[Rfam]
RNA sequence: UUAUGGAGGCUGGUACAAAAUGUUUAAAGGCGCGUUUUGUACCAGCCUCUAUAAGCCGAUUGCGGCUUCCUGCUUUUAAGGUCGGACCACGGCAGCGGUUGGGUCUUGCGCAAUGGGAGCUCAUGAACCUCGUUAGGUCCGGAAGGAAGCAGCGAUAAGUGAUAACUUCUAUGUGCCGCAGGGGUGCCUGAGCGUUGCUGUGGCCCGACGUUGAAAACAGGACGCCGUUUGUAA
Numbered sequence: 001u002u003a004u005g006g007a008g009g010c011u012g013g014u015a016c017a018a019a020a021u022g023u024u025u026a027a028a029g030g031c032g033c034g035u036u037u038u039g040u041a042c043c044a045g046c047c048u049c050u051a052u053a054a055g056c057c058g059a060u061u062g063c064g065g066c067u068u069c070c071u072g073c074u075u076u077u078a079a080g081g082u083c084g085g086a087c088c089a090c091g092g093c094a095g096c097g098g099u100u101g102g103g104u105c106u107u108g109c110g111c112a113a114u115g116g117g118a119g120c121u122c123a124u125g126a127a128c129c130u131c132g133u134u135a136g137g138u139c140c141g142g143a144a145g146g147a148a149g150c151a152g153c154g155a156u157a158a159g160u161g162a163u164a165a166c167u168u169c170u171a172u173g174u175g176c177c178g179c180a181g182g183g184g185u186g187c188c189u190g191a192g193c194g195u196u197g198c199u200g201u202g203g204c205c206c207g208a209c210g211u212u213g214a215a216a217a218c219a220g221g222a223c224g225c226c227g228u229u230u231g232u233a234a
Stems, first nucleotide, its partner, number of pairs: 001234007008057004012043012063227004068222001070220003074216006083210002085205001087203007096194002099191006105182006111173002114171005121162004130155004138147003
A member of the RNA family "Bacterial large signal recognition particle RNA" from Methylomusa anaerophila, 234 nucleotides long.
Rfam classes the family as a non-coding RNA gene.